[Rfam]
RNA sequence: UAUGUGGCUGAAGAUGACCAUUUUUUUCCCCGUCUUAUCGAUUUUGGUGAAAAAAAGAAAGAUACUUAGCCAGUGUUUCUGAAGCCACAUU
Numbered sequence: 001u002a003u004g005u006g007g008c009u010g011a012a013g014a015u016g017a018c019c020a021u022u023u024u025u026u027u028c029c030c031c032g033u034c035u036u037a038u039c040g041a042u043u044u045u046g047g048u049g050a051a052a053a054a055a056a057g058a059a060a061g062a063u064a065c066u067u068a069g070c071c072a073g074u075g076u077u078u079c080u081g082a083a084g085c086c087a088c089a090u091u
Base pairs, nucleotide, nucleotide: 002090003089004088005087006086007085008084009083
Shown here is a 91-nucleotide sequence from Neogobius melanostomus, a member of the family "Small nucleolar SNORD12/SNORD106". Its family is annotated with RNA processing and nucleolus in the Gene Ontology. The family's consensus secondary structure was predicted with RNAalifold. The family has 8 seed sequences and 2,264 matches in Rfam 15.1. Taxonomically the source falls in Neogobius (Eukaryota, Vertebrata, Osteoglossocephalai, Gobiiformes). Rfam classes the family as a C/D-box small nucleolar RNA. Its Rfam clan is "SNORD12 clan".